[Rfam]
RNA sequence: UCCUCCUGCAAAGGUAUGUUUUUGGUUCUUUAUCCUUGGACACGUUAAGUAUUGGAGACAAAGAAAUGUGGAUUUGGCAAAGUCUGGGGCCAGCUUGCUCCACACAGGCUCAAGAUCAACCAUCCCACACAG
Numbered sequence: 001u002c003c004u005c006c007u008g009c010a011a012a013g014g015u016a017u018g019u020u021u022u023u024g025g026u027u028c029u030u031u032a033u034c035c036u037u038g039g040a041c042a043c044g045u046u047a048a049g050u051a052u053u054g055g056a057g058a059c060a061a062a063g064a065a066a067u068g069u070g071g072a073u074u075u076g077g078c079a080a081a082g083u084c085u086g087g088g089g090c091c092a093g094c095u096u097g098c099u100c101c102a103c104a105c106a107g108g109c110u111c112a113a114g115a116u117c118a119a120c121c122a123u124c125c126c127a128c129a130c131a132g
Base pairs, nucleotide, nucleotide: 003057004056005055006054015044017042018041019040020039021038024030025029070125071124072123074122092110093109094108095107096106097105

Rfam assigns this 132-nucleotide RNA from Nannospalax galili to the family "Small nucleolar RNA SNORA38".
The match comes from Rfam's covariance-model search (119 bits).
From the family's description: ACA38 is a member of the H/ACA class of snoRNA that guide the sites of modification of uridines to pseudouridines.
The family's consensus secondary structure was predicted with RNAfold.
Its family is annotated with Cajal body, RNA processing and nucleolus in the Gene Ontology.